RNA: TPP riboswitch aptamer (THI element)
Organism: Marinobacter sp. X15-166B
RNA sequence: CGCGUCUUGACGGGGUGCUGGCAACUGGCCGGCUGAGAUUGCACUGCAGAACCCGAAUACCUGAUCCGGAUAAUGCCGGCGUAGGAAUAUGAGAACACAUCAGCA
Numbered sequence: 001c002g003c004g005u006c007u008u009g010a011c012g013g014g015g016u017g018c019u020g021g022c023a024a025c026u027g028g029c030c031g032g033c034u035g036a037g038a039u040u041g042c043a044c045u046g047c048a049g050a051a052c053c054c055g056a057a058u059a060c061c062u063g064a065u066c067c068g069g070a071u072a073a074u075g076c077c078g079g080c081g082u083a084g085g086a087a088u089a090u091g092a093g094a095a096c097a098c099a100u101c102a103g104c105a
Stems, first nucleotide, its partner, number of pairs: 006093004011055004016049001017033005040048003060085004066079004